[Rfam]
RNA sequence: AGCGUCUUGUCGGGGUGCCACCGGUGUGGCUGAGAUCGCUCGCAGAGCGGGACCCGGGAACCUGAUCCGGCCAGGCCAAAGGCCUGAACCGGCGUAGGAAACAGGACAGAUGCCCUU
Dot-bracket structure: .....(((((((((.((((((....)))))......(((((...))))))..))))....((((..((((..................))))..))))..)))))............
The family of this 117-nucleotide RNA from Tamilnaduibacter salinus is "TPP riboswitch aptamer (THI element)". About the family: Vitamin B(1) in its active form thiamin pyrophosphate (TPP) is an essential coenzyme that is synthesised by coupling of pyrimidine and thiazole moieties in bacteria. The match comes from Rfam's covariance-model search (60 bits). Its family is annotated with thiamine pyrophosphate binding in the Gene Ontology.